The record is a 54-nucleotide RNA from Anguilla anguilla, which matches "UnaL2 LINE 3' element" in Rfam.

RNA sequence: GACACAUGCUUUUGUACGUCGCUUUGGAUAAAAGCGUCUGCUAAAUAAAUGUAA
Dot-bracket structure: ............((((...((((((.....))))))..))).)...........
Numbered sequence: 001g002a003c004a005c006a007u008g009c010u011u012u013u014g015u016a017c018g019u020c021g022c023u024u025u026g027g028a029u030a031a032a033a034g035c036g037u038c039u040g041c042u043a044a045a046u047a048a049a050u051g052u053a054a
Stems, first nucleotide, its partner, number of pairs: 013043001014041003020036006
Background
Lineage of the source: Eukaryota > Bilateria > Gnathostomata > Anguillidae > Anguilla. It is annotated as a cis-regulatory element.